[Rfam]
RNA sequence: GAAGUGGUCGCCGCAACAGUAAUCCAAUUCAGUACGAGAGGAACCGUUGGUUCACAUAAUUGGUCAAUUCAGUUGAUUGAAACGUCAAUGCUGAGAAGCUACCAUGUGUAGGAUUACGGCUGAACGCCUCUAAGCCAGAAUCCAUGCUGGAAAGCGGCGAUAUGCAGCCUUCCCAGAUGUUAUCAUGAGUACGUAUAGGCUUCGGCCCAAGAUCAUACAAUUGCCAUGGCACUGCUCGGACAUAAAAGUACGACGCAGUCUAGGCUGAACACAAGUUCAAAUAUCGGGAGGGACAAAUCCUUUGUAGACGACUUAAAUAAAGAACGAGGUAUUGUACGCAUGAGAGUGGCCUUUGUGCCACGAUCUGCUGAGAUUCAGCCUCUGUUCUGGAGAUUUGU
Numbered sequence: 001g002a003a004g005u006g007g008u009c010g011c012c013g014c015a016a017c018a019g020u021a022a023u024c025c026a027a028u029u030c031a032g033u034a035c036g037a038g039a040g041g042a043a044c045c046g047u048u049g050g051u052u053c054a055c056a057u058a059a060u061u062g063g064u065c066a067a068u069u070c071a072g073u074u075g076a077u078u079g080a081a082a083c084g085u086c087a088a089u090g091c092u093g094a095g096a097a098g099c100u101a102c103c104a105u106g107u108g109u110a111g112g113a114u115u116a117c118g119g120c121u122g123a124a125c126g127c128c129u130c131u132a133a134g135c136c137a138g139a140a141u142c143c144a145u146g147c148u149g150g151a152a153a154g155c156g157g158c159g160a161u162a163u164g165c166a167g168c169c170u171u172c173c174c175a176g177a178u179g180u181u182a183u184c185a186u187g188a189g190u191a192c193g194u195a196u197a198g199g200c201u202u203c204g205g206c207c208c209a210a211g212a213u214c215a216u217a218c219a220a221u222u223g224c225c226a227u228g229g230c231a232c233u234g235c236u237c238g239g240a241c242a243u244a245a246a247a248g249u250a251c252g253a254c255g256c257a258g259u260c261u262a263g264g265c266u267g268a269a270c271a272c273a274a275g276u277u278c279a280a281a282u283a284u285c286g287g288g289a290g291g292g293a294c295a296a297a298u299c300c301u302u303u304g305u306a307g308a309c310g311a312c313u314u315a316a317a318u319a320a321a322g323a324a325c326g327a328g329g330u331a332u333u334g335u336a337c338g339c340a341u342g343a344g345a346g347u348g349g350c351c352u353u354u355g356u357g358c359c360a361c362g363a364u365c366u367g368c369u370g371a372g373a374u375u376c377a378g379c380c381u382c383u384g385u386u387c388u389g390g391a392g393a394u395u396u397g398u
Stems, first nucleotide, its partner, number of pairs: 007161008017149004022052001024050005053108005061101003068095005073088005111143002118136004169291006295396005301315001304312001321388006327381003331374002338368003343364001346361005